[Rfam]
RNA sequence: GGCCCAAAUUUGAAGGAGAGUAGAUUAGAAGGAUCAUCUGACCCUACUGAACAACUAUACUUCGAGUAUGUGCCC
Numbered sequence: 001g002g003c004c005c006a007a008a009u010u011u012g013a014a015g016g017a018g019a020g021u022a023g024a025u026u027a028g029a030a031g032g033a034u035c036a037u038c039u040g041a042c043c044c045u046a047c048u049g050a051a052c053a054a055c056u057a058u059a060c061u062u063c064g065a066g067u068a069u070g071u072g073c074c075c
Stems, first nucleotide, its partner, number of pairs: 001074003005070002008067002011064005017058001019056003023052001025050004030045001032043001034041002
RNA: mir-5928 microRNA precursor family
Organism: Haemonchus placei